A member of the RNA family "Small nucleolar RNA SNORA49" from Acipenser ruthenus, 133 nucleotides long. Rfam's curators write: The snoRNA ACA49 has no identified RNA target. NB genomic sequence 1-nt different from published.
RNA sequence: GUUCCCUUUGCUAACUCCAGGGGCCUCCGAUACAGUGUGGUGCCCUGGCAUUAUACAGGGAUAGAUUUAAAGGCUUUCCUCCCUCCCUGACUGGACUUGUAUUCCUUUUGGGGCCUAUAUGUGAGCCAACAGA
Numbered sequence: 001g002u003u004c005c006c007u008u009u010g011c012u013a014a015c016u017c018c019a020g021g022g023g024c025c026u027c028c029g030a031u032a033c034a035g036u037g038u039g040g041u042g043c044c045c046u047g048g049c050a051u052u053a054u055a056c057a058g059g060g061a062u063a064g065a066u067u068u069a070a071a072g073g074c075u076u077u078c079c080u081c082c083c084u085c086c087c088u089g090a091c092u093g094g095a096c097u098u099g100u101a102u103u104c105c106u107u108u109u110g111g112g113g114c115c116u117a118u119a120u121g122u123g124a125g126c127c128a129a130c131a132g133a
Base pairs, nucleotide, nucleotide: 003061004060005059006058007057009055017048018047019046020045021044022043023041024040025039027037072127073126074125077123085113086112087111088110089109090108093106094105
The family's RNA type in Rfam is H/ACA-box small nucleolar RNA. Its family is annotated with nucleolus and RNA processing in the Gene Ontology.